[Rfam]
RNA sequence: CUCUCCGAAAUAGCUUUAGGGCUAGCCUCGGAUGAAUCAUCAUGGAGGUAGAGCACUGUUUGAACUAGGGGCCCGUCAUGGGUUACUGAAUUCAGAUAAACUCCGAAUGCCAUUGAUGUGUUAUCCGGGAGUCAGACGAUGAGUGAUAAGAUCCACCGUCGAAAGGGGAACAGCCCAGAUCACCAGUUAAGGUCCCUAAAUAUAUGCUAAGUGGAAAAGGAUGUGGAGUUGCACAGACAACUAGGAUGUUGGCUCAGAAGCAGCCACCAUUUAAAGAGUGCGUAAUAGCUCACUAGUCGAGUGAUUCUGCGCCGAAAAUGUACCGGGGCUAAGCAUAUUACCGAAACUGUGGGUGCCACGUAAGUGGCGCGAUAGGAGAGCGUUCUAUGGGCGGUGAAGCCAGAUCGUAAGGACUGGUGGAGCGCAUAGAAGUGAGAAU
Numbered sequence: 001c002u003c004u005c006c007g008a009a010a011u012a013g014c015u016u017u018a019g020g021g022c023u024a025g026c027c028u029c030g031g032a033u034g035a036a037u038c039a040u041c042a043u044g045g046a047g048g049u050a051g052a053g054c055a056c057u058g059u060u061u062g063a064a065c066u067a068g069g070g071g072c073c074c075g076u077c078a079u080g081g082g083u084u085a086c087u088g089a090a091u092u093c094a095g096a097u098a099a100a101c102u103c104c105g106a107a108u109g110c111c112a113u114u115g116a117u118g119u120g121u122u123a124u125c126c127g128g129g130a131g132u133c134a135g136a137c138g139a140u141g142a143g144u145g146a147u148a149a150g151a152u153c154c155a156c157c158g159u160c161g162a163a164a165g166g167g168g169a170a171c172a173g174c175c176c177a178g179a180u181c182a183c184c185a186g187u188u189a190a191g192g193u194c195c196c197u198a199a200a201u202a203u204a205u206g207c208u209a210a211g212u213g214g215a216a217a218a219g220g221a222u223g224u225g226g227a228g229u230u231g232c233a234c235a236g237a238c239a240a241c242u243a244g245g246a247u248g249u250u251g252g253c254u255c256a257g258a259a260g261c262a263g264c265c266a267c268c269a270u271u272u273a274a275a276g277a278g279u280g281c282g283u284a285a286u287a288g289c290u291c292a293c294u295a296g297u298c299g300a301g302u303g304a305u306u307c308u309g310c311g312c313c314g315a316a317a318a319u320g321u322a323c324c325g326g327g328g329c330u331a332a333g334c335a336u337a338u339u340a341c342c343g344a345a346a347c348u349g350u351g352g353g354u355g356c357c358a359c360g361u362a363a364g365u366g367g368c369g370c371g372a373u374a375g376g377a378g379a380g381c382g383u384u385c386u387a388u389g390g391g392c393g394g395u396g397a398a399g400c401c402a403g404a405u406c407g408u409a410a411g412g413a414c415u416g417g418u419g420g421a422g423c424g425c426a427u428a429g430a431a432g433u434g435a436g437a438a439u
Stems, first nucleotide, its partner, number of pairs: 001380006011024005026131001027129007036122001038118004042113004051104001052102002057098003061094004068087002070084005135160004140155002143152002165176003180352004185348003191342003200339001202338006219313002223310010240297005246270003251265003271275001276291001280289002353370007381434001383431007391423002399418005405412002
The record is a 439-nucleotide part of an RNA from Furfurilactobacillus rossiae, which matches "Bacterial large subunit ribosomal RNA" in Rfam. The base pairs follow the family's consensus structure, which is taken from published work. Gene Ontology terms of the family: ribosome and structural constituent of ribosome.